[Rfam]
RNA sequence: GGAUUAUCUCCAAGGUUGAUCUAUUGGAAUUACUUAUCUGGACCGAAGUAAUUCAAGUAAUUCAGGUGUAGUGAAAC
Numbered sequence: 001g002g003a004u005u006a007u008c009u010c011c012a013a014g015g016u017u018g019a020u021c022u023a024u025u026g027g028a029a030u031u032a033c034u035u036a037u038c039u040g041g042a043c044c045g046a047a048g049u050a051a052u053u054c055a056a057g058u059a060a061u062u063c064a065g066g067u068g069u070a071g072u073g074a075a076a077c
Stems, first nucleotide, its partner, number of pairs: 007074002010071001012069001014067001016065004022059004027054009
The record is a 77-nucleotide RNA sequence from Lynx pardinus, which matches "mir-1297 microRNA precursor family" in Rfam. Its family is annotated with RISC complex and miRNA-mediated post-transcriptional gene silencing in the Gene Ontology. The base pairs follow the family's consensus structure, which was predicted with RNAalifold.